Annotation: The family of this 66-nucleotide RNA sequence from Salicibibacter halophilus is "Fluoride riboswitch aptamer (crcB RNA motif)". Gene Ontology terms of the family: response to fluoride and positive regulation of gene expression. It scores 51 bits against the family's covariance model.
RNA sequence: UAAGACAUAGGCGAUGGAGUUCGCCAUAACUGUCGUCUAGUAGCGGCUAAUGACUCCUAACAGGUA
Numbered sequence: 001u002a003a004g005a006c007a008u009a010g011g012c013g014a015u016g017g018a019g020u021u022c023g024c025c026a027u028a029a030c031u032g033u034c035g036u037c038u039a040g041u042a043g044c045g046g047c048u049a050a051u052g053a054c055u056c057c058u059a060a061c062a063g064g065u066a
Base pairs, nucleotide, nucleotide: 010025011024012023013022016057017056018055019054020053021052032047033046034045035044